[Rfam]
RNA sequence: AUUAAAAUAUAAGCGCCAGGAGUUAGGUGAGGUUAAAAUCUUACUUAGAGUAUUUUCAAAAAAGCUAGCAUUUUUGACCUGCUAAUUUUUUAAAUGCCUACUUAACUUGACGAGGAUAGGGAAUAUCGAAAUUUUCGGCGGAUGCCCUACGGUAUAGCACUACCGUUAAAGAUCAAUCAAAACCAAAGAGCGAUUUUUGGGACAAAAUUGAUCGGGUGCUAAUAU
Number, nucleotide and partner (000 for none) at each position: 001a000002u000003u000004a000005a000006a000007a000008u000009a000010u000011a000012a000013g000014c000015g000016c000017c000018a000019g000020g108021a107022g106023u105024u104025a103026g102027g101028u000029g099030a000031g000032g000033u000034u000035a000036a000037a000038a000039u000040c000041u000042u000043a000044c000045u000046u000047a000048g000049a000050g000051u000052a000053u000054u000055u000056u000057c000058a000059a000060a000061a000062a000063a000064g000065c000066u000067a000068g000069c000070a000071u000072u000073u000074u000075u000076g000077a000078c000079c000080u000081g000082c000083u000084a000085a000086u000087u000088u000089u000090u000091u000092a000093a000094a000095u000096g000097c000098c000099u029100a000101c027102u026103u025104a024105a023106c022107u021108u020109g000110a000111c000112g000113a000114g000115g000116a000117u149118a148119g147120g146121g145122a000123a000124u000125a000126u138127c137128g136129a135130a000131a000132u000133u000134u000135u129136c128137g127138g126139c000140g000141g000142a000143u000144g000145c121146c120147c119148u118149a117150c165151g164152g163153u162154a161155u000156a000157g000158c000159a000160c000161u154162a153163c152164c151165g150166u000167u000168a000169a000170a000171g213172a212173u211174c210175a209176a000177u000178c000179a000180a000181a000182a000183c200184c199185a198186a197187a196188g195189a194190g000191c000192g000193a000194u189195u188196u187197u186198u185199g184200g183201g000202a000203c000204a000205a000206a000207a000208u000209u175210g174211a173212u172213c171214g000215g000216g000217u000218g000219c000220u000221a000222a000223u000224a000225u000
RNA: glmS glucosamine-6-phosphate activated ribozyme aptamer
Organism: Clostridium tepidiprofundi